[Rfam]
RNA sequence: AUGUGUUUGUGCGUGGAAUGUGUUCAGCACUAAGAACAGGUGUGUUUGUGUGUAGAUGGUGUUCAGCACCAAGGACAGGCGUGUUUAUGU
Numbered sequence: 001a002u003g004u005g006u007u008u009g010u011g012c013g014u015g016g017a018a019u020g021u022g023u024u025c026a027g028c029a030c031u032a033a034g035a036a037c038a039g040g041u042g043u044g045u046u047u048g049u050g051u052g053u054a055g056a057u058g059g060u061g062u063u064c065a066g067c068a069c070c071a072a073g074g075a076c077a078g079g080c081g082u083g084u085u086u087a088u089g090u
Stems, first nucleotide, its partner, number of pairs: 004081007020069005026063007034051001036049005
This 90-nucleotide RNA sequence from Branchiostoma belcheri belongs to the Rfam family "mir-2060 microRNA precursor family". Rfam 15.1 lists 3,696 matches to the family in 4 species. The match comes from Rfam's covariance-model search (69 bits). Rfam links the family to the GO terms miRNA-mediated post-transcriptional gene silencing and RISC complex.